This 70-nucleotide RNA from Aphis glycines belongs to the Rfam family "mir-3017 microRNA precursor family". Taxonomically the source falls in Aphis (Eukaryota, Hexapoda, Aphidoidea, Aphis). Gene Ontology terms of the family: RISC complex and miRNA-mediated post-transcriptional gene silencing.
RNA sequence: UCGUGUUCUGUUCCUGACUUGGAUGGCGCCAGAAUGGCGGGCGCCCUCCGGUCCCUUACAGAACACGAGA
Numbered sequence: 001u002c003g004u005g006u007u008c009u010g011u012u013c014c015u016g017a018c019u020u021g022g023a024u025g026g027c028g029c030c031a032g033a034a035u036g037g038c039g040g041g042c043g044c045c046c047u048c049c050g051g052u053c054c055c056u057u058a059c060a061g062a063a064c065a066c067g068a069g070a
Stems, first nucleotide, its partner, number of pairs: 001068011016053003020050003025045003